[Rfam]
RNA sequence: GUUCCCAAUGAUGCAUUAACCAUGCUAAUACUUAUACCAUCUGACGAGCAAUAUAUUAUUAAUGAGGGAACC
Numbered sequence: 001g002u003u004c005c006c007a008a009u010g011a012u013g014c015a016u017u018a019a020c021c022a023u024g025c026u027a028a029u030a031c032u033u034a035u036a037c038c039a040u041c042u043g044a045c046g047a048g049c050a051a052u053a054u055a056u057u058a059u060u061a062a063u064g065a066g067g068g069a070a071c072c
Stems, first nucleotide, its partner, number of pairs: 001071005
This 72-nucleotide RNA sequence from Triticum aestivum belongs to the Rfam family "Small nucleolar RNA snoR53Y". The literature on the family includes a 2001 paper in RNA by Brown et al., "Multiple snoRNA gene clusters from Arabidopsis".